[Rfam]
RNA sequence: ACAGUCACGUCGUUUGUGGCUGAAAAGCUCACCGUUGUGAGUUGUCUAAGACAAAAGGAACAAAUCGAUG
Numbered sequence: 001a002c003a004g005u006c007a008c009g010u011c012g013u014u015u016g017u018g019g020c021u022g023a024a025a026a027g028c029u030c031a032c033c034g035u036u037g038u039g040a041g042u043u044g045u046c047u048a049a050g051a052c053a054a055a056a057g058g059a060a061c062a063a064a065u066c067g068a069u070g
Stems, first nucleotide, its partner, number of pairs: 002022008026043006
RNA: osmY RNA